[Rfam]
RNA sequence: AUGCAGUGUACCACAUGGAAGACUAGCGAUUUUGUUGUUAAUUAUCAGAAUCCACAACAAGUCUUGGUCUUCCUGGUGGCGCACUCGC
Dot-bracket structure: .((....((.((((..((.(((((.(.(((((.(((((...............)))))))))).)))))).))..)))).))...)).
Numbered sequence: 001a002u003g004c005a006g007u008g009u010a011c012c013a014c015a016u017g018g019a020a021g022a023c024u025a026g027c028g029a030u031u032u033u034g035u036u037g038u039u040a041a042u043u044a045u046c047a048g049a050a051u052c053c054a055c056a057a058c059a060a061g062u063c064u065u066g067g068u069c070u071u072c073c074u075g076g077u078g079g080c081g082c083a084c085u086c087g088c
Stems, first nucleotide, its partner, number of pairs: 002087002008082002011079004017073002020070005026065001028063005034058005
The record is an 88-nucleotide sequence from Eptatretus burgeri, which matches "mir-7 microRNA precursor family" in Rfam. Rfam describes the family as follows. This family represents the microRNA (miRNA) precursor mir-7. Lineage of the source: Eukaryota > Opisthokonta > Myxini > Eptatretinae > Eptatretus. A search with the family's covariance model found it, with a score of 57 bits. On this family, see Lagos-Quintana et al., Science 2001: "Identification of novel genes coding for small expressed RNAs".